[Rfam]
RNA sequence: GGUUGAUAUGAUGAUAAGCUUUCACAGAACCACAUCUGUUGACCAAAAAAAUCAGACUACAAUUAUCUGAUCCGCC
Numbered sequence: 001g002g003u004u005g006a007u008a009u010g011a012u013g014a015u016a017a018g019c020u021u022u023c024a025c026a027g028a029a030c031c032a033c034a035u036c037u038g039u040u041g042a043c044c045a046a047a048a049a050a051a052u053c054a055g056a057c058u059a060c061a062a063u064u065a066u067c068u069g070a071u072c073c074g075c076c
Stems, first nucleotide, its partner, number of pairs: 001076003005072002
Rfam assigns this 76-nucleotide sequence from Eragrostis curvula to the family "Small nucleolar RNA Z155".
NCBI's taxonomy places the organism under Eukaryota, Euphyllophyta, Liliopsida, Poaceae, Eragrostis.
Rfam 15.1 lists 429 matches to the family in 196 species.
The family's RNA type in Rfam is C/D-box small nucleolar RNA.
The pairing is the family consensus, mapped onto this sequence.
For this family Rfam cites "The high diversity of snoRNAs in plants: identification and comparative study of 120 snoRNA genes from Oryza sativa" (Chen et al., Nucleic Acids Res, 2003).